[Rfam]
Background
Rfam assigns this 82-nucleotide sequence from Cellulosimicrobium sp. CUA-896 to the family "mraW RNA". It scores 53 bits against the family's covariance model.
RNA sequence: UCCGGUGAGGUCUCCUCCCGCCCGGUCUGGCGCACUUCCCCGGUGCCAGAAAGGACGCGGAGGGAGACCUGACCGGACGGCC
Numbered sequence: 001u002c003c004g005g006u007g008a009g010g011u012c013u014c015c016u017c018c019c020g021c022c023c024g025g026u027c028u029g030g031c032g033c034a035c036u037u038c039c040c041c042g043g044u045g046c047c048a049g050a051a052a053g054g055a056c057g058c059g060g061a062g063g064g065a066g067a068c069c070u071g072a073c074c075g076g077a078c079g080g081c082c
Stems, first nucleotide, its partner, number of pairs: 001077006009069002012066005018060004022054002026050008